Shown here is a 135-nucleotide sequence from Gallibacterium salpingitidis, a member of the family "Molybdenum/Tungsten riboswitch aptamer (Moco RNA motif)". Its family is annotated with tungstate binding, molybdenum ion binding and regulation of gene expression in the Gene Ontology. The match comes from Rfam's covariance-model search (80 bits). The base pairs follow the family's consensus structure, which is taken from published work.
[Rfam]
RNA sequence: UUUUUUCGCAUACUCCGAGCUAGUUUACCUAAGUCGAUAGAUAAGGUGGCUAUGCCAAACACAUUAAGUGUUUCACGGAUAGAUUGGAAACGGUCUAUCCCCUCGUAUUUAGAAAGGUGUUUAUGCAACAAUAUA
Numbered sequence: 001u002u003u004u005u006u007c008g009c010a011u012a013c014u015c016c017g018a019g020c021u022a023g024u025u026u027a028c029c030u031a032a033g034u035c036g037a038u039a040g041a042u043a044a045g046g047u048g049g050c051u052a053u054g055c056c057a058a059a060c061a062c063a064u065u066a067a068g069u070g071u072u073u074c075a076c077g078g079a080u081a082g083a084u085u086g087g088a089a090a091c092g093g094u095c096u097a098u099c100c101c102c103u104c105g106u107a108u109u110u111a112g113a114a115a116g117g118u119g120u121u122u123a124u125g126c127a128a129c130a131a132u133a134u135a
Stems, first nucleotide, its partner, number of pairs: 004128001012120002015117002019055002023051001025049005033042003058072005077100010102112002